RNA sequence: GCGGCACGUAGCCUCUUGUGAUGAUACCAAUUUUUCCUGAGUGGCCGACUUGAUGAGCUCACGACGAGCCCUCUAAGAAGUUGACUGAAGAGGCUGUCGGGCU
Numbered sequence: 001g002c003g004g005c006a007c008g009u010a011g012c013c014u015c016u017u018g019u020g021a022u023g024a025u026a027c028c029a030a031u032u033u034u035u036c037c038u039g040a041g042u043g044g045c046c047g048a049c050u051u052g053a054u055g056a057g058c059u060c061a062c063g064a065c066g067a068g069c070c071c072u073c074u075a076a077g078a079a080g081u082u083g084a085c086u087g088a089a090g091a092g093g094c095u096g097u098c099g100g101g102c103u
Stems, first nucleotide, its partner, number of pairs: 007099002009096009
The family of this 103-nucleotide RNA sequence from Phrynocephalus forsythii is "Small nucleolar RNA SNORD125". The organism belongs to Phrynocephalus, within Eukaryota. For this family Rfam cites "snoSeeker: an advanced computational package for screening of guide and orphan snoRNA genes in the human genome" (Yang et al., Nucleic Acids Res, 2006).